Annotation: The family of this 76-nucleotide RNA sequence from Cetobacterium somerae is "c-di-GMP-I riboswitch aptamer".
RNA sequence: AAAAUUAUAUGGCAAACUAUGAGAAAUCAUAGGACGCAAAGCUAUAGGGCCUGUAAAAUGGUAGCCAGUUGCACUU
Numbered sequence: 001a002a003a004a005u006u007a008u009a010u011g012g013c014a015a016a017c018u019a020u021g022a023g024a025a026a027u028c029a030u031a032g033g034a035c036g037c038a039a040a041g042c043u044a045u046a047g048g049g050c051c052u053g054u055a056a057a058a059u060g061g062u063a064g065c066c067a068g069u070u071g072c073a074c075u076u
Stems, first nucleotide, its partner, number of pairs: 012037002017032006040070004047066002049062003